The family of this 86-nucleotide RNA from Cocos nucifera is "Small nucleolar RNA R16".
The base pairs follow the family's consensus structure, which was predicted with PFOLD.
By type it is a C/D-box small nucleolar RNA.
Rfam links the family to the GO terms RNA processing and nucleolus.
Taxonomically the source falls in Cocos (Eukaryota, Embryophyta, Mesangiospermae, Petrosaviidae).
The family has 18 seed sequences and 884 matches in Rfam 15.1.
RNA sequence: GUUGGCAGGGAAUGUGAUUGUGAAAUCUUAUCCUACACACUGAAAUGUUUUGUGGACUUAAACUCCGCUUAUUAUCUGAUGCCCCU
Numbered sequence: 001g002u003u004g005g006c007a008g009g010g011a012a013u014g015u016g017a018u019u020g021u022g023a024a025a026u027c028u029u030a031u032c033c034u035a036c037a038c039a040c041u042g043a044a045a046u047g048u049u050u051u052g053u054g055g056a057c058u059u060a061a062a063c064u065c066c067g068c069u070u071a072u073u074a075u076c077u078g079a080u081g082c083c084c085c086u
Stems, first nucleotide, its partner, number of pairs: 004083004